Annotation
Shown here is a 69-nucleotide sequence from Frankliniella occidentalis, a member of the family "mir-1175 microRNA precursor family". Rfam links the family to the GO terms miRNA-mediated post-transcriptional gene silencing and RISC complex.
RNA sequence: CGGACUAAGUGGAGUAGUGGUCUCUACACUUGUUUUAAAAGUGAGAUUCAACUCCUCCAACUUAUUUCU
Numbered sequence: 001c002g003g004a005c006u007a008a009g010u011g012g013a014g015u016a017g018u019g020g021u022c023u024c025u026a027c028a029c030u031u032g033u034u035u036u037a038a039a040a041g042u043g044a045g046a047u048u049c050a051a052c053u054c055c056u057c058c059a060a061c062u063u064a065u066u067u068c069u
Base pairs, nucleotide, nucleotide: 007063008062009061010059011058012057013056014055017053018051023046024045027043028042029041030040031039